The record is a 69-nucleotide sequence from Homarus americanus, which matches "mir-10 microRNA precursor family" in Rfam.
[Rfam]
RNA sequence: CCACCCAAACCCGUAGAUCCGAACUUGUGGUAUUAUUAACACAAGCUCGAUUCUAUGGGGAUAGGUUGU
Numbered sequence: 001c002c003a004c005c006c007a008a009a010c011c012c013g014u015a016g017a018u019c020c021g022a023a024c025u026u027g028u029g030g031u032a033u034u035a036u037u038a039a040c041a042c043a044a045g046c047u048c049g050a051u052u053c054u055a056u057g058g059g060g061a062u063a064g065g066u067u068g069u
Stems, first nucleotide, its partner, number of pairs: 003066003007062001010059003015054003020049003024045006

Record summary: It scores 60 bits against the family's covariance model. Rfam 15.1 lists 3,853 matches to the family in 853 species. Lineage of the source: Eukaryota > Eumetazoa > Mandibulata > Astacidea > Homarus.